[Rfam]
RNA sequence: GAGCGCCGUCACUUCACUACGGAUCGUCCGGCACGUACCUGCCGGUGAAGGGAGCACUAC
Numbered sequence: 001g002a003g004c005g006c007c008g009u010c011a012c013u014u015c016a017c018u019a020c021g022g023a024u025c026g027u028c029c030g031g032c033a034c035g036u037a038c039c040u041g042c043c044g045g046u047g048a049a050g051g052g053a054g055c056a057c058u059a060c
Stems, first nucleotide, its partner, number of pairs: 010052001012050005028045006
RNA: msiK RNA